[Rfam]
RNA sequence: GUGGCGGUGCAGUCCCAGGUGGCGUCGGCGUCCAGCAGGGCGUUCUCACCGAACCGGUCGCCGUCGGCGAGUACGGCGACGGUGACCUCGUCGCCGUACUUGCCGACGGAGGUCUGGUUGAUCCGGCCGUGGGCGAUCAGGUGGAUCCGGUCGGCGGGGGCGCCUCGCUCGGCCAGCACCUCACCGGCCCGGAAGUCGCGCUGGACGCACCGGCCGGCGAUCGCGGUCAGCACCUCCACGUCGUCGAAGCCGCGCAGCAAGGCCAGUUCGCCCAGCUCACGGGGGAUCACCCGGACGUCGGCACCAUCCUGGACGAACUCGAUCUGCCCGUCGCCGACGGUGUAGGUCAGCCGGCGGUUCACCCGGUAGGUGCCGCCCUUGGUCUCCACCCAAGGGAGCAUCCGCAGCAGCCAGCGAGAGGUGAUCUCCUGCAUCUGCGGUGCGGACUUGGUCGUGGUGGCAAGAUUGCGCGCAGCCGCGGUGCUCAGGCUGGACUGCUGGGGCGG
Numbered sequence: 001g002u003g004g005c006g007g008u009g010c011a012g013u014c015c016c017a018g019g020u021g022g023c024g025u026c027g028g029c030g031u032c033c034a035g036c037a038g039g040g041c042g043u044u045c046u047c048a049c050c051g052a053a054c055c056g057g058u059c060g061c062c063g064u065c066g067g068c069g070a071g072u073a074c075g076g077c078g079a080c081g082g083u084g085a086c087c088u089c090g091u092c093g094c095c096g097u098a099c100u101u102g103c104c105g106a107c108g109g110a111g112g113u114c115u116g117g118u119u120g121a122u123c124c125g126g127c128c129g130u131g132g133g134c135g136a137u138c139a140g141g142u143g144g145a146u147c148c149g150g151u152c153g154g155c156g157g158g159g160g161c162g163c164c165u166c167g168c169u170c171g172g173c174c175a176g177c178a179c180c181u182c183a184c185c186g187g188c189c190c191g192g193a194a195g196u197c198g199c200g201c202u203g204g205a206c207g208c209a210c211c212g213g214c215c216g217g218c219g220a221u222c223g224c225g226g227u228c229a230g231c232a233c234c235u236c237c238a239c240g241u242c243g244u245c246g247a248a249g250c251c252g253c254g255c256a257g258c259a260a261g262g263c264c265a266g267u268u269c270g271c272c273c274a275g276c277u278c279a280c281g282g283g284g285g286a287u288c289a290c291c292c293g294g295a296c297g298u299c300g301g302c303a304c305c306a307u308c309c310u311g312g313a314c315g316a317a318c319u320c321g322a323u324c325u326g327c328c329c330g331u332c333g334c335c336g337a338c339g340g341u342g343u344a345g346g347u348c349a350g351c352c353g354g355c356g357g358u359u360c361a362c363c364c365g366g367u368a369g370g371u372g373c374c375g376c377c378c379u380u381g382g383u384c385u386c387c388a389c390c391c392a393a394g395g396g397a398g399c400a401u402c403c404g405c406a407g408c409a410g411c412c413a414g415c416g417a418g419a420g421g422u423g424a425u426c427u428c429c430u431g432c433a434u435c436u437g438c439g440g441u442g443c444g445g446a447c448u449u450g451g452u453c454g455u456g457g458u459g460g461c462a463a464g465a466u467u468g469c470g471c472g473c474a475g476c477c478g479c480g481g482u483g484c485u486c487a488g489g490c491u492g493g494a495c496u497g498c499u500g501g502g503g504c505g506g
Stems, first nucleotide, its partner, number of pairs: 006390004011385002014382002018328002021325002025322004031316002036311005042305001046303001049301004058229001060227005065111001068108001075103001077102003082097003086093001117222001119220001122217002127212001129210002132206001133199003149189006157177001159174003235295003240290002243287003250282003254278001256277003262269001329342004353377005360372004391431002394428004399423003403418001405416001407415001437476002440473001442471003446467001448464002451461002481504002484502005